[Rfam]
RNA: mir-147 microRNA precursor family
RNA sequence: CCUGAGUCUUGAGGAAGCAUUUCUGCACGCACCAGACUAUUGAAACCAGUGUGUGGAAAUGCUUCUGUUACAUUCUUA
Numbered sequence: 001c002c003u004g005a006g007u008c009u010u011g012a013g014g015a016a017g018c019a020u021u022u023c024u025g026c027a028c029g030c031a032c033c034a035g036a037c038u039a040u041u042g043a044a045a046c047c048a049g050u051g052u053g054u055g056g057a058a059a060u061g062c063u064u065c066u067g068u069u070a071c072a073u074u075c076u077u078a
Stems, first nucleotide, its partner, number of pairs: 004075004009070001011068001013066004018061012032049001
Dot-bracket structure: ...((((.(.(.((((.((((((((((((..(................))))))))))))).)))).).).))))...